[Rfam]
RNA sequence: AACCUGGUUGAUCCUGCCAGUAGUCAUAUGCUCGUCUCAAAGAUUAAGCCAUGCAUGUCUAAGUAUAAAUAUUUCAAAUUAAAACUGCGAACGGCUCAUUAAAUCAGUUUAACUCUAAACAGCAAUUCUUUUUUCGGAUAACUGUAGUAAUUCUAGAGCUAAUACGUAUGCAAAACAUCCGCAAGGGUGUUUGCCGAGGGAUUAUAGGCUAAAAUAAUAUGAUUAUACCCUCGAUGCGAAACCUUCCAUUGGAAGGUAUGUUGUUUGAUAUUCUGCCCUAUCAACUUUUGACGGUAGUGUCGUGGACUACCAUGGUGAUGACGGGUAACGGGGAAUAAGGGUUCGAUUCCGGAGAGGGGGCCUGAGAAAUGGCCACCACUUCUAAGGAAGGCAGCAGGCGCGCAAAUUACCCAAUCUCAAUUCGAGGAGGUAGUGACAAGAAAUAGCAAUGCCUUGGCUCUUAAUGGGUCUGGCAAUUGCAAUGAGCAUAUAUUAAAACUCUUAACGAGGAACAAUUGGAGGGCAAGUCUGGUGCCAGCAGCCGCGGUAAUUCCAGCUCCAAUAGCGUAUAUUAAAUUUGUUG
Numbered sequence: 001a002a003c004c005u006g007g008u009u010g011a012u013c014c015u016g017c018c019a020g021u022a023g024u025c026a027u028a029u030g031c032u033c034g035u036c037u038c039a040a041a042g043a044u045u046a047a048g049c050c051a052u053g054c055a056u057g058u059c060u061a062a063g064u065a066u067a068a069a070u071a072u073u074u075c076a077a078a079u080u081a082a083a084a085c086u087g088c089g090a091a092c093g094g095c096u097c098a099u100u101a102a103a104u105c106a107g108u109u110u111a112a113c114u115c116u117a118a119a120c121a122g123c124a125a126u127u128c129u130u131u132u133u134u135c136g137g138a139u140a141a142c143u144g145u146a147g148u149a150a151u152u153c154u155a156g157a158g159c160u161a162a163u164a165c166g167u168a169u170g171c172a173a174a175a176c177a178u179c180c181g182c183a184a185g186g187g188u189g190u191u192u193g194c195c196g197a198g199g200g201a202u203u204a205u206a207g208g209c210u211a212a213a214a215u216a217a218u219a220u221g222a223u224u225a226u227a228c229c230c231u232c233g234a235u236g237c238g239a240a241a242c243c244u245u246c247c248a249u250u251g252g253a254a255g256g257u258a259u260g261u262u263g264u265u266u267g268a269u270a271u272u273c274u275g276c277c278c279u280a281u282c283a284a285c286u287u288u289u290g291a292c293g294g295u296a297g298u299g300u301c302g303u304g305g306a307c308u309a310c311c312a313u314g315g316u317g318a319u320g321a322c323g324g325g326u327a328a329c330g331g332g333g334a335a336u337a338a339g340g341g342u343u344c345g346a347u348u349c350c351g352g353a354g355a356g357g358g359g360g361c362c363u364g365a366g367a368a369a370u371g372g373c374c375a376c377c378a379c380u381u382c383u384a385a386g387g388a389a390g391g392c393a394g395c396a397g398g399c400g401c402g403c404a405a406a407u408u409a410c411c412c413a414a415u416c417u418c419a420a421u422u423c424g425a426g427g428a429g430g431u432a433g434u435g436a437c438a439a440g441a442a443a444u445a446g447c448a449a450u451g452c453c454u455u456g457g458c459u460c461u462u463a464a465u466g467g468g469u470c471u472g473g474c475a476a477u478u479g480c481a482a483u484g485a486g487c488a489u490a491u492a493u494u495a496a497a498a499c500u501c502u503u504a505a506c507g508a509g510g511a512a513c514a515a516u517u518g519g520a521g522g523g524c525a526a527g528u529c530u531g532g533u534g535c536c537a538g539c540a541g542c543c544g545c546g547g548u549a550a551u552u553c554c555a556g557c558u559c560c561a562a563u564a565g566c567g568u569a570u571a572u573u574a575a576a577u578u579u580g581u582u583g
Stems, first nucleotide, its partner, number of pairs: 004020005022573003026570007035441003041434001042401001048399003052396003057088002062086003069080001095354003105275003110270002114268002120263004133168001135166002142158002145155003175190005195233006209221001212218001242256005277325003284316003291313001293311006329351004333344004356377002359374003379390004407432001409431003415427004447479003450475004456470005486506001488503001490502001492500001516562006529556004538545002